This 163-nucleotide sequence from Nakamurella alba belongs to the Rfam family "c-di-AMP riboswitch aptamer (ydaO/yuaA leader)".
[Rfam]
RNA sequence: GGGAGGUCACCGCCGAGUCGACGCCGUCGGGGAGUCGAGCCGGGAACCCAAGGUUCCACUGGGGUGAAUCCCCUGAGCUACGCGCCUUCGCGGAGGUCGGGGGUAGGGCCACUUCCUGGCCCGAAUCCGUCAGCUAACCCGGUAGGCGGCAAGGAAGAAGGGU
Numbered sequence: 001g002g003g004a005g006g007u008c009a010c011c012g013c014c015g016a017g018u019c020g021a022c023g024c025c026g027u028c029g030g031g032g033a034g035u036c037g038a039g040c041c042g043g044g045a046a047c048c049c050a051a052g053g054u055u056c057c058a059c060u061g062g063g064g065u066g067a068a069u070c071c072c073c074u075g076a077g078c079u080a081c082g083c084g085c086c087u088u089c090g091c092g093g094a095g096g097u098c099g100g101g102g103g104u105a106g107g108g109c110c111a112c113u114u115c116c117u118g119g120c121c122c123g124a125a126u127c128c129g130u131c132a133g134c135u136a137a138c139c140c141g142g143u144a145g146g147c148g149g150c151a152a153g154g155a156a157g158a159a160g161g162g163u
Stems, first nucleotide, its partner, number of pairs: 011148004018038005039143006049061002062128003070103007106122004

About this RNA: The match comes from Rfam's covariance-model search (78 bits).